[Rfam]
RNA sequence: CAAGGACUCGGGUGCGAUUCCCGGGUGGCUCUUCCGGCCGCCGAUCCGCCGGACCAUU
Dot-bracket structure: .....((((((.........))))))......((((((.........)))))).....
A member of the RNA family "sul1 RNA" from Paracoccus denitrificans, 58 nucleotides long. It is annotated as a riboswitch.